[Rfam]
RNA: U7 small nuclear RNA
Nucleotides: 062
Stems, first nucleotide, its partner, number of pairs: 034059008
Number, partner (000 for none) and nucleotide at each position: 001000u002000a003000g004000u005000g006000u007000u008000a009000c010000a011000g012000c013000u014000c015000u016000u017000u018000u019000a020000g021000a022000a023000u024000u025000u026000g027000u028000c029000u030000a031000g032000c033000a034059g035058g036057u037056u038055u039054u040053c041052c042000c043000u044000a045000u046000u047000u048000u049000a050000c051000u052041g053040g054039a055038g056037a057036a058035c059034c060000c061000c062000u